[Rfam]
RNA sequence: CAUGAUUGGGGGUGAAACUGUCAUGGAGCGUGAUAUAAUUUAUAUCAUAAUUCAAAUUAUAGUUGUCUACUAUUUUUUAAGUAGAGGAUAACACCCCAAAAAUGAAAAAAUACUUUUCCCCUGCAGAUAUUAUUUGCAGGUUUUUUU
Numbered sequence: 001c002a003u004g005a006u007u008g009g010g011g012g013u014g015a016a017a018c019u020g021u022c023a024u025g026g027a028g029c030g031u032g033a034u035a036u037a038a039u040u041u042a043u044a045u046c047a048u049a050a051u052u053c054a055a056a057u058u059a060u061a062g063u064u065g066u067c068u069a070c071u072a073u074u075u076u077u078u079a080a081g082u083a084g085a086g087g088a089u090a091a092c093a094c095c096c097c098a099a100a101a102a103u104g105a106a107a108a109a110a111u112a113c114u115u116u117u118c119c120c121c122u123g124c125a126g127a128u129a130u131u132a133u134u135u136g137c138a139g140g141u142u143u144u145u146u147u
Stems, first nucleotide, its partner, number of pairs: 009097005026053003032048001035045003062092007070084004104118005120140007
A member of the RNA family "manA_II ncRNA motif" from Leptotrichia hofstadii, 147 nucleotides long. NCBI's taxonomy places the organism under Bacteria, Fusobacteriati, Fusobacteriia, Fusobacteriales, Leptotrichia. Gene Ontology term of the family: regulation of gene expression. For this family Rfam cites "The discovery of novel noncoding RNAs in 50 bacterial genomes" (Narunsky et al., Nucleic Acids Res, 2024).